[Rfam]
RNA sequence: GCCUCGAACAUUGGGGAGUAGUCGUCCCGCGGUCCUGCCGCGGGAACCUGUAUCAACAUGAUUGGCCCGCAGGCCAUGGUGCAGGUGGUUGCAGAACUUGACGAGACCAUUGAUCCAGGGCGGCCGCAUGGGCCGGAGUCGCCCGUGGAUCAUUGGUUAAUUCGUCCGGC
Numbered sequence: 001g002c003c004u005c006g007a008a009c010a011u012u013g014g015g016g017a018g019u020a021g022u023c024g025u026c027c028c029g030c031g032g033u034c035c036u037g038c039c040g041c042g043g044g045a046a047c048c049u050g051u052a053u054c055a056a057c058a059u060g061a062u063u064g065g066c067c068c069g070c071a072g073g074c075c076a077u078g079g080u081g082c083a084g085g086u087g088g089u090u091g092c093a094g095a096a097c098u099u100g101a102c103g104a105g106a107c108c109a110u111u112g113a114u115c116c117a118g119g120g121c122g123g124c125c126g127c128a129u130g131g132g133c134c135g136g137a138g139u140c141g142c143c144c145g146u147g148g149a150u151c152a153u154u155g156g157u158u159a160a161u162u163c164g165u166c167c168g169g170c
Base pairs, nucleotide, nucleotide: 026044027043028042046086047085048084049083050082051081052080053079054078055077063076064075065074066073067072
Annotation:
The family of this 170-nucleotide RNA from Janthinobacterium sp. KBS0711 is "Manganese Mn2+ riboswitch aptamer (yybP-ykoY)". The pairing is the family consensus, mapped onto this sequence.